[Rfam]
About this RNA:
Shown here is a 47-nucleotide sequence, a member of the family "Hepatitis C virus stem-loop I". By type it is a cis-regulatory element.
RNA sequence: CAAUCGUGUAGGAGCCUGUCUCAGGAAACUUGGGGCACCUCCAUUGA
Number, nucleotide and partner (000 for none) at each position: 001c000002a000003a000004u000005c000006g000007u000008g041009u000010a000011g038012g000013a000014g000015c000016c000017u000018g036019u035020c034021u033022c032023a031024g030025g029026a000027a000028a000029c025030u024031u023032g022033g021034g020035g019036c018037a000038c011039c000040u000041c008042c000043a000044u000045u000046g000047a000